[Rfam]
RNA sequence: GUGACAGAAGAGAGUGAGCACACAUGGCGUUUUCUUGCAUGCUGUGUUUCAUGCUUGAAGCUUUGCGUGCUCACUCUCUAUCUGUCAC
Numbered sequence: 001g002u003g004a005c006a007g008a009a010g011a012g013a014g015u016g017a018g019c020a021c022a023c024a025u026g027g028c029g030u031u032u033u034c035u036u037g038c039a040u041g042c043u044g045u046g047u048u049u050c051a052u053g054c055u056u057g058a059a060g061c062u063u064u065g066c067g068u069g070c071u072c073a074c075u076c077u078c079u080a081u082c083u084g085u086c087a088c
Stems, first nucleotide, its partner, number of pairs: 001088008010078012023065002
The family of this 88-nucleotide sequence from Rosa chinensis is "mir-156 microRNA precursor family".
Rfam describes the family as follows. This family represents the plant microRNA (miRNA) precursor mir-156.
Rfam links the family to the GO terms miRNA-mediated post-transcriptional gene silencing and RISC complex.
The base pairs follow the family's consensus structure, which was predicted with PFOLD.